Purine riboswitch aptamer: a 100-nucleotide RNA sequence from Vibrio xiamenensis. Pairs were carried over by alignment from the consensus structure, which is taken from published work.
[Rfam]
RNA sequence: CUAUCGGUUUUGCCGAUGCUUCGUAUAACCCCAUUAAUACGGUAUGGGGGUCUCUACCUGGAGCCGUAAAUUCCAGAUUACGAAGAGUUAAGUGCACAGC
Numbered sequence: 001c002u003a004u005c006g007g008u009u010u011u012g013c014c015g016a017u018g019c020u021u022c023g024u025a026u027a028a029c030c031c032c033a034u035u036a037a038u039a040c041g042g043u044a045u046g047g048g049g050g051u052c053u054c055u056a057c058c059u060g061g062a063g064c065c066g067u068a069a070a071u072u073c074c075a076g077a078u079u080a081c082g083a084a085g086a087g088u089u090a091a092g093u094g095c096a097c098a099g100c
Stems, first nucleotide, its partner, number of pairs: 019085007029049006058076006
Dot-bracket structure: ..................(((((((...((((((.........))))))........((((((.......))))))..)))))))...............
Taxonomically the source falls in Vibrio (Bacteria, Pseudomonadati, Vibrionales, Vibrionaceae).